Rfam assigns this 62-nucleotide RNA sequence from Prolemur simus to the family "U7 small nuclear RNA". A search with the family's covariance model found it, with a score of 36 bits. Animal histone pre-mRNAs are spliced by a different mechanism than nuclear pre-mRNAs and self-splicing introns.
RNA sequence: CAGCGAGACGGCACUUGCAGAAUUUGUCUAGCAGGUUUUCCCGUCCUCACUGGGAGACCUCC
Number, nucleotide and partner (000 for none) at each position: 001c000002a000003g000004c000005g000006a000007g000008a000009c000010g000011g000012c000013a000014c000015u000016u000017g000018c000019a000020g000021a000022a000023u000024u000025u000026g000027u000028c000029u000030a000031g000032c000033a000034g059035g058036u057037u056038u055039u054040c053041c052042c000043g050044u049045c000046c000047u000048c000049a044050c043051u000052g041053g040054g039055a038056g037057a036058c035059c034060u000061c000062c000